[Rfam]
Nucleotides: 084
Stems, first nucleotide, its partner, number of pairs: 001084002004081021026059015
Number, partner (000 for none) and nucleotide at each position: 001084u002083a003000u004081u005080a006079g007078g008077u009076u010075g011074g012073u013072g014071c015070a016069a017068a018067c019066g020065u021064a022063a023062u024061c025000a026059u027058g028057g029056u030055u031054u032053u033052u034051g035050c036049c037048a038047u039046u040045g041000a042000a043000a044000g045040u046039a047038a048037u049036g050035g051034c052033a053032a054031a055030a056029g057028c058027c059026a060000c061024g062023a063022u064021u065020a066019c067018g068017u069016u070015u071014g072013c073012a074011c075010c076009a077008a078007c079006c080005u081004a082000u083002u084001g

Shown here is an 84-nucleotide sequence from Piliocolobus tephrosceles, a member of the family "mir-548 microRNA precursor family".
Lineage of the source: Eukaryota > Eutheria > Euarchontoglires > Cercopithecidae > Piliocolobus.
The family's consensus secondary structure was predicted with WAR.
It scores 92 bits against the family's covariance model.
Rfam links the family to the GO terms miRNA-mediated post-transcriptional gene silencing and RISC complex.